[Rfam]
RNA sequence: AAGGGUUACAGGUCUUUUAGAAUUUGUUUGGCAGGUUUUCCAGGUUUUACCAGAAAACUCCA
Number, nucleotide and partner (000 for none) at each position: 001a000002a000003g000004g000005g000006u000007u000008a000009c000010a000011g000012g000013u000014c000015u000016u000017u000018u000019a000020g000021a000022a000023u000024u000025u000026g000027u000028u000029u000030g000031g000032c000033a000034g059035g058036u057037u056038u055039u054040c053041c000042a000043g050044g000045u000046u000047u000048u000049a000050c043051c000052a000053g040054a039055a038056a037057a036058c035059u034060c000061c000062a000
Background: Rfam assigns this 62-nucleotide RNA from Otolemur garnettii to the family "U7 small nuclear RNA". Pairs were carried over by alignment from the consensus structure, which was predicted with PFOLD. Animal histone pre-mRNAs are spliced by a different mechanism than nuclear pre-mRNAs and self-splicing introns. NCBI's taxonomy places the organism under Eukaryota, Gnathostomata, Euteleostomi, Euarchontoglires, Otolemur.